RNA sequence: AGGCAUGCUGGGGAUGGGGUUCCCCGAAACCGCCCGCCGUGGGCUGAUGACUCCUAUCAAUCG
Numbered sequence: 001a002g003g004c005a006u007g008c009u010g011g012g013g014a015u016g017g018g019g020u021u022c023c024c025c026g027a028a029a030c031c032g033c034c035c036g037c038c039g040u041g042g043g044c045u046g047a048u049g050a051c052u053c054c055u056a057u058c059a060a061u062c063g
Stems, first nucleotide, its partner, number of pairs: 010025004016054006032044004
Source information:
The record is a 63-nucleotide sequence from Rhizobium deserti, which matches "Fluoride riboswitch aptamer (crcB RNA motif)" in Rfam. Rfam links the family to the GO terms response to fluoride and positive regulation of gene expression. The family's consensus secondary structure is taken from published work. NCBI's taxonomy places the organism under Bacteria, Pseudomonadati, Alphaproteobacteria, Rhizobiaceae, Rhizobium.